SraG RNA: a 175-nucleotide RNA sequence from Serratia symbiotica. The source organism's lineage runs through Bacteria, Pseudomonadota, Enterobacterales, Serratia and Serratia symbiotica. It is annotated as a small RNA. Gene Ontology terms of the family: sRNA-mediated gene silencing and mRNA binding. A reference for the family is Argaman et al. (2001), "Novel small RNA-encoding genes in the intergenic regions of Escherichia coli", Curr Biol. Pairs were carried over by alignment from the consensus structure, which was predicted with PFOLD. Rfam describes the family as follows. This RNA was discovered in E. coli during a large scale screen. Evidence was found for specific cleavage of this RNA. It scores 133 bits against the family's covariance model.
[Rfam]
RNA sequence: UUUCCACUACAUCCUCGCGACUAAUGAGAGGCUUUAUCUCAAGCUGGGGAUAAAGCCUCUCAUUAGUCGCGCGAACCUCUGUAACGGAAAAACCUGUUUUGGGAGCAUCAAGCAAUACAUUAACCUGAUUUGCUUAUGCUUCCUAGAAAAAAGGGGCCAUGAUAGGCCCCUUUUC
Numbered sequence: 001u002u003u004c005c006a007c008u009a010c011a012u013c014c015u016c017g018c019g020a021c022u023a024a025u026g027a028g029a030g031g032c033u034u035u036a037u038c039u040c041a042a043g044c045u046g047g048g049g050a051u052a053a054a055g056c057c058u059c060u061c062a063u064u065a066g067u068c069g070c071g072c073g074a075a076c077c078u079c080u081g082u083a084a085c086g087g088a089a090a091a092a093c094c095u096g097u098u099u100u101g102g103g104a105g106c107a108u109c110a111a112g113c114a115a116u117a118c119a120u121u122a123a124c125c126u127g128a129u130u131u132g133c134u135u136a137u138g139c140u141u142c143c144u145a146g147a148a149a150a151a152a153g154g155g156g157c158c159a160u161g162a163u164a165g166g167c168c169c170c171u172u173u174u175c
Base pairs, nucleotide, nucleotide: 001090002089003088004087005086009082010081011080016073017072018071019070021066022065023064024063025062026061027060097127153170154169155168156167157166158165